TPP riboswitch aptamer (THI element): a 95-nucleotide sequence from Niveibacterium umoris.
The organism belongs to Niveibacterium, within Bacteria.
The family's consensus secondary structure is taken from published work.
[Rfam]
RNA sequence: UCCUUUCGCCAGGGGUCCCCGACGCAUCGGGGUGAGAGACACCCUCUGCACCUGAUCCGGGUCAUGCCGGCGUAGGGAGGCGAAGCCGCCACCGG
Numbered sequence: 001u002c003c004u005u006u007c008g009c010c011a012g013g014g015g016u017c018c019c020c021g022a023c024g025c026a027u028c029g030g031g032g033u034g035a036g037a038g039a040c041a042c043c044c045u046c047u048g049c050a051c052c053u054g055a056u057c058c059g060g061g062u063c064a065u066g067c068c069g070g071c072g073u074a075g076g077g078a079g080g081c082g083a084a085g086c087c088g089c090c091a092c093c094g095g
Stems, first nucleotide, its partner, number of pairs: 006083005011045004016039001017032005051076004057070004